[Rfam]
RNA sequence: AACCGGGGACCUCAUGGAAUAAAUUAGUUCGAACCAGGUCAGGACAGGAAUGUAGCAGCCUUAAGAAUCAUACUUAUGCCUUGAGAUAAUCUCCGGUUUUUU
Dot-bracket structure: ...((((((.(((((...((((.((.((((.....((((....(((....)))....))))...)))).).).)))))...)))).)...))))).......
The family of this 102-nucleotide RNA from Candidatus Protochlamydia amoebophila is "Bacterial small signal recognition particle RNA". Rfam's curators write: The signal recognition particle (SRP) is a universally conserved ribonucleoprotein involved in the co-translational targeting of proteins to membranes. Rfam links the family to the GO terms SRP-dependent cotranslational protein targeting to membrane, signal sequence recognition and signal recognition particle, plasma membrane targeting.